RNA sequence: CUGUGCGGCUCCAAGGUGCCGGACGCCCAGGCCGCCUACGAGAGCGCCAACACCCUGCUGCCGACGGUGCUCGGCGGUGUCAACUUCGUGCUGCACGCCG
Numbered sequence: 001c002u003g004u005g006c007g008g009c010u011c012c013a014a015g016g017u018g019c020c021g022g023a024c025g026c027c028c029a030g031g032c033c034g035c036c037u038a039c040g041a042g043a044g045c046g047c048c049a050a051c052a053c054c055c056u057g058c059u060g061c062c063g064a065c066g067g068u069g070c071u072c073g074g075c076g077g078u079g080u081c082a083a084c085u086u087c088g089u090g091c092u093g094c095a096c097g098c099c100g
Stems, first nucleotide, its partner, number of pairs: 003012001025032001034061002077098001079096002
RNA: Pyrrolysine insertion sequence mttB